[Rfam]
RNA: TPP riboswitch aptamer (THI element)
Organism: Clostridium sp. Maddingley MBC34-26
RNA sequence: GACGAGUACUAGGGGAGCCAUUUUGGCUGAGAUGAAUUUUUCAGACCCUUUGAACCUGCUCUGGAUAAUGCCAGCGAAGGGAAGUUGUAUGAUAAUGUA
Numbered sequence: 001g002a003c004g005a006g007u008a009c010u011a012g013g014g015g016a017g018c019c020a021u022u023u024u025g026g027c028u029g030a031g032a033u034g035a036a037u038u039u040u041u042c043a044g045a046c047c048c049u050u051u052g053a054a055c056c057u058g059c060u061c062u063g064g065a066u067a068a069u070g071c072c073a074g075c076g077a078a079g080g081g082a083a084g085u086u087g088u089a090u091g092a093u094a095a096u097g098u099a
Stems, first nucleotide, its partner, number of pairs: 008085003011049004017027004034042003055080003061074004